The family of this 46-nucleotide RNA from Syntrophotalea carbinolica is "Moco-II RNA". NCBI's taxonomy places the organism under Bacteria, Thermodesulfobacteriota, Desulfuromonadales, Syntrophotaleaceae, Syntrophotalea carbinolica. It is annotated as a cis-regulatory element. The base pairs follow the family's consensus structure, which is taken from published work.
RNA sequence: CGCGCUUAUUUCGUCCUCUGCGUUAAGCAGACUUCGCGAAACCCGC
Number, nucleotide and partner (000 for none) at each position: 001c000002g000003c000004g000005c000006u000007u000008a000009u000010u000011u039012c038013g037014u036015c000016c000017u031018c030019u029020g028021c027022g000023u000024u000025a000026a000027g021028c020029a019030g018031a017032c000033u000034u000035c000036g014037c013038g012039a011040a000041a000042c000043c000044c000045g000046c000